[Rfam]
Bacterial RNase P class A: a 424-nucleotide sequence from Bordetella ansorpii.
RNA sequence: AGGACAGAUCGGGCAAUCGCGGGACGUUUUCGGACGUUUCGAGGAAGGUCCGGACUCCACAGGGCAGGAUAGCGGCUAACGGCCGUCCGGAUGCAAGGGGGGGCUUUGCCCCGCCUUGUUCAUUCGAGGAAUAGGGCCACAGAGACGAGUCUGCGGCGCGGGCGCGCUCCGGCGCGCACAGGCACGGCCAUCUCCGUGCUUCGUCCUCCGGCAACGGCGGGCGGCGUGGCAGGGUGAAACGCGGCAACCUCUAUCCGGAGCAACAUCAAAUAGGCAUGCGCACGGUCUUCGGACCGGGAAGGGCGGCUCCGUUCGAGCAUGCGGGUAGAUGGCUACAGCCGUCCAGCAAUGGCCGGCGCAGAGGAAUGAUUGCCCGCCGGGGUCACCCGGCGUACAGAAUCCGGCCUAUAGAUCUGUCCUGCCU
Numbered sequence: 001a002g003g004a005c006a007g008a009u010c011g012g013g014c015a016a017u018c019g020c021g022g023g024a025c026g027u028u029u030u031c032g033g034a035c036g037u038u039u040c041g042a043g044g045a046a047g048g049u050c051c052g053g054a055c056u057c058c059a060c061a062g063g064g065c066a067g068g069a070u071a072g073c074g075g076c077u078a079a080c081g082g083c084c085g086u087c088c089g090g091a092u093g094c095a096a097g098g099g100g101g102g103g104c105u106u107u108g109c110c111c112c113g114c115c116u117u118g119u120u121c122a123u124u125c126g127a128g129g130a131a132u133a134g135g136g137c138c139a140c141a142g143a144g145a146c147g148a149g150u151c152u153g154c155g156g157c158g159c160g161g162g163c164g165c166g167c168u169c170c171g172g173c174g175c176g177c178a179c180a181g182g183c184a185c186g187g188c189c190a191u192c193u194c195c196g197u198g199c200u201u202c203g204u205c206c207u208c209c210g211g212c213a214a215c216g217g218c219g220g221g222c223g224g225c226g227u228g229g230c231a232g233g234g235u236g237a238a239a240c241g242c243g244g245c246a247a248c249c250u251c252u253a254u255c256c257g258g259a260g261c262a263a264c265a266u267c268a269a270a271u272a273g274g275c276a277u278g279c280g281c282a283c284g285g286u287c288u289u290c291g292g293a294c295c296g297g298g299a300a301g302g303g304c305g306g307c308u309c310c311g312u313u314c315g316a317g318c319a320u321g322c323g324g325g326u327a328g329a330u331g332g333c334u335a336c337a338g339c340c341g342u343c344c345a346g347c348a349a350u351g352g353c354c355g356g357c358g359c360a361g362a363g364g365a366a367u368g369a370u371u372g373c374c375c376g377c378c379g380g381g382g383u384c385a386c387c388c389g390g391c392g393u394a395c396a397g398a399a400u401c402c403g404g405c406c407u408a409u410a411g412a413u414c415u416g417u418c419c420u421g422c423c424u
Stems, first nucleotide, its partner, number of pairs: 001420010011409001012374007020041009046407003050404005055260004062309004067256005072086005087128001088126006129251002134249002136245003151233002153230002156227004161222001264331004274322006301314004338357004343352003

Annotation:
Lineage of the source: Bacteria > Pseudomonadati > Pseudomonadota > Betaproteobacteria > Bordetella. By type it is a ribozyme.